[Rfam]
RNA sequence: GACCUCGGCUGACCUGACACAACAUCCUGCCGAGAUGUUGUGCACCGACCUGCAGUGUCAGUCAGCCAAGGUC
Numbered sequence: 001g002a003c004c005u006c007g008g009c010u011g012a013c014c015u016g017a018c019a020c021a022a023c024a025u026c027c028u029g030c031c032g033a034g035a036u037g038u039u040g041u042g043c044a045c046c047g048a049c050c051u052g053c054a055g056u057g058u059c060a061g062u063c064a065g066c067c068a069a070g071g072u073c
Base pairs, nucleotide, nucleotide: 001073002072003071004070005069007067008066009065010064011063021039022038023037024036025035026034045061047059048058049057
This 73-nucleotide sequence from Pyricularia oryzae belongs to the Rfam family "bZIP non canonical Hac1/Xbp1 intron". For this family Rfam cites "Conserved RNA structures in the non-canonical Hac1/Xbp1 intron" (Hooks and Griffiths-Jones, RNA Biol, 2011). bZIP intron RNA is a non-canonical intron that was first reported in HAC1 gene in yeast and XBP1 gene in Metazoa. By type it is a small RNA. NCBI's taxonomy places the organism under Eukaryota, Fungi, Pezizomycotina, leotiomyceta, Pyricularia. Pairs were carried over by alignment from the consensus structure, which was predicted with RNAfold.